RNA sequence: UAAGUUCUUCGGGGCAGGGUGUGAUUCCCUACCGGCGGUAUAGUCCGCGAGCCUUUGUGCAUGAACCGGUGUGAUUCCGGUACCGACAGUAUAGUCUGGAUGAGAGAAGAAAACG
Numbered sequence: 001u002a003a004g005u006u007c008u009u010c011g012g013g014g015c016a017g018g019g020u021g022u023g024a025u026u027c028c029c030u031a032c033c034g035g036c037g038g039u040a041u042a043g044u045c046c047g048c049g050a051g052c053c054u055u056u057g058u059g060c061a062u063g064a065a066c067c068g069g070u071g072u073g074a075u076u077c078c079g080g081u082a083c084c085g086a087c088a089g090u091a092u093a094g095u096c097u098g099g100a101u102g103a104g105a106g107a108a109g110a111a112a113a114c115g
Base pairs, nucleotide, nucleotide: 005111006110007109008108009107010106017029018028019027031095032094033085034084035048036047037046038045043083044082053059065081066080067079068078069077087098088097089096